Rfam assigns this 118-nucleotide sequence to the family "LOOT RNA".
RNA sequence: UGCCUAAGUCCUGUUAGGAUAUGGCAAAAAAAACCCAACCACGGCGGUAAGCUCCUCAUCGAGCACUCGUGGUUGGGUCAUACGGGGAAACCUGUAUGGGUGGUCUGAAAAGAUUGCC
Number, nucleotide and partner (000 for none) at each position: 001u026002g025003c024004c023005u000006a000007a000008g000009u019010c018011c017012u016013g000014u000015u000016a012017g011018g010019a009020u000021a000022u000023g004024g003025c002026a001027a000028a000029a000030a000031a000032a000033a000034c077035c076036c075037a074038a073039c072040c071041a070042c069043g068044g000045c000046g000047g066048u065049a000050a000051g064052c063053u062054c061055c000056u000057c000058a000059u000060c000061g054062a053063g052064c051065a048066c047067u000068c043069g042070u041071g040072g039073u038074u037075g036076g035077g034078u000079c098080a097081u096082a095083c094084g093085g092086g091087g000088a000089a000090a000091c086092c085093u084094g083095u082096a081097u080098g079099g118100g117101u116102g115103g114104u113105c112106u111107g000108a000109a000110a000111a106112g105113a104114u103115u102116g101117c100118c099